[Rfam]
RNA sequence: UGGAUAGAUUACUGUAUUCAACUAUAUUCACGGUGUGAAAAGGGGAAUUACACUGUUUUUAAACGGAAAGUGAAUCAAUUAACAUAAUAGACUCCU
Numbered sequence: 001u002g003g004a005u006a007g008a009u010u011a012c013u014g015u016a017u018u019c020a021a022c023u024a025u026a027u028u029c030a031c032g033g034u035g036u037g038a039a040a041a042g043g044g045g046a047a048u049u050a051c052a053c054u055g056u057u058u059u060u061a062a063a064c065g066g067a068a069a070g071u072g073a074a075u076c077a078a079u080u081a082a083c084a085u086a087a088u089a090g091a092c093u094c095c096u
Base pairs, nucleotide, nucleotide: 002095003094004093009090010089011088013086014085015084017082018081020080021079023077026075027074028073029072030071031070034065035064036063037059038058039057040056042054043053

Overview:
This 96-nucleotide sequence from Nicotiana sylvestris belongs to the Rfam family "MIR6152 microRNA precursor family". The organism belongs to Nicotiana, within Eukaryota.